Rfam assigns this 229-nucleotide part of an RNA from Povalibacter uvarum to the family "Bacterial large subunit ribosomal RNA". It scores 2856 bits against the family's covariance model. Rfam links the family to the GO terms ribosome and structural constituent of ribosome.
[Rfam]
RNA sequence: GAGUUAUUUUCAGUGGCGAGGCUAACCGAAUAGGGGAGCCGUAGGGAAACCGAGUCCGAACAGGGCGAAUCAGUCGCUGGGAAUAGACCCGAAGCCGGUCGAUCUAUCCAUGUCCAGGGUGAAGGUGGGGUAAUACCCACUGGAGGCCCGAACGCACCACUGUUGCAAUAGUGCGGCGAUGAGGUGUGGAUAGGAGUGAAAGGCUAAUCAAGGCCGGCGAUAGCUGGUU
Numbered sequence: 001g002a003g004u005u006a007u008u009u010u011c012a013g014u015g016g017c018g019a020g021g022c023u024a025a026c027c028g029a030a031u032a033g034g035g036g037a038g039c040c041g042u043a044g045g046g047a048a049a050c051c052g053a054g055u056c057c058g059a060a061c062a063g064g065g066c067g068a069a070u071c072a073g074u075c076g077c078u079g080g081g082a083a084u085a086g087a088c089c090c091g092a093a094g095c096c097g098g099u100c101g102a103u104c105u106a107u108c109c110a111u112g113u114c115c116a117g118g119g120u121g122a123a124g125g126u127g128g129g130g131u132a133a134u135a136c137c138c139a140c141u142g143g144a145g146g147c148c149c150g151a152a153c154g155c156a157c158c159a160c161u162g163u164u165g166c167a168a169u170a171g172u173g174c175g176g177c178g179a180u181g182a183g184g185u186g187u188g189g190a191u192a193g194g195a196g197u198g199a200a201a202g203g204c205u206a207a208u209c210a211a212g213g214c215c216g217g218c219g220a221u222a223g224c225u226g227g228u229u
Stems, first nucleotide, its partner, number of pairs: 005085013020040004026034002044051002054066004088227002091224001095217006104193011115181001117149004124141006153178003157175001158173004195205003